[Rfam]
RNA sequence: GUAUUCAGGUAAUCGCUGCAACUUCGGUUGUAGAGGAAAGUCCAUGCUCACACGGAUCUGAGAUGACCGUAGUGUUCGUGCUCGGUGAAAAAAUAAGCCGGGGCAAUGCAUCUGCAUUGAUGGCGAGAAUAACUCCUAAGUCUUCGGAUAUGGACUAGAUUCUCUGAAAGUGCCACAGUGACGUAGUCGGCAUGGAAACAUGUCGAGUGGAACGGGUAAACCCCACGAGUGAGAAACCCAAAUUAUGGUAGGGGCGUUCUUCCGAAAGAAUUCAAUGGAGGAAGGAACAGGCAAUUGUCUGUAGAUAGAUGAUUACCACUUCAAGUACGAGGCGCGAGCCGUUUGAGUACCGAAGAACAAAACAUGGCUUACAGAA
Numbered sequence: 001g002u003a004u005u006c007a008g009g010u011a012a013u014c015g016c017u018g019c020a021a022c023u024u025c026g027g028u029u030g031u032a033g034a035g036g037a038a039a040g041u042c043c044a045u046g047c048u049c050a051c052a053c054g055g056a057u058c059u060g061a062g063a064u065g066a067c068c069g070u071a072g073u074g075u076u077c078g079u080g081c082u083c084g085g086u087g088a089a090a091a092a093a094u095a096a097g098c099c100g101g102g103g104c105a106a107u108g109c110a111u112c113u114g115c116a117u118u119g120a121u122g123g124c125g126a127g128a129a130u131a132a133c134u135c136c137u138a139a140g141u142c143u144u145c146g147g148a149u150a151u152g153g154a155c156u157a158g159a160u161u162c163u164c165u166g167a168a169a170g171u172g173c174c175a176c177a178g179u180g181a182c183g184u185a186g187u188c189g190g191c192a193u194g195g196a197a198a199c200a201u202g203u204c205g206a207g208u209g210g211a212a213c214g215g216g217u218a219a220a221c222c223c224c225a226c227g228a229g230u231g232a233g234a235a236a237c238c239c240a241a242a243u244u245a246u247g248g249u250a251g252g253g254g255c256g257u258u259c260u261u262c263c264g265a266a267a268g269a270a271u272u273c274a275a276u277g278g279a280g281g282a283a284g285g286a287a288c289a290g291g292c293a294a295u296u297g298u299c300u301g302u303a304g305a306u307a308g309a310u311g312a313u314u315a316c317c318a319c320u321u322c323a324a325g326u327a328c329g330a331g332g333c334g335c336g337a338g339c340c341g342u343u344u345g346a347g348u349a350c351c352g353a354a355g356a357a358c359a360a361a362a363c364a365u366g367g368c369u370u371a372c373a374g375a376a
Base pairs, nucleotide, nucleotide: 004376005375006374008317009316010315011314012313013312014311016033017032018031019030020029021028038370039369040368042367043366044365045364046363047233048232049231050230051229052070053069054068055067057066058065076228077227078226079225080224081102082101083100084099085098086097103121104119105118106117107116108115109114122223123222125164126163127162128161134154135153136152140149141148142147170221171220172217173216174215187206188205189204190203191202192201193200194199237253238252239251257286258285259284260283261282262281263280287302288301289300290299291298292297319355320354321353322352325350326349327348328347
RNA: Bacterial RNase P class B
Organism: Sporosarcina sp. P19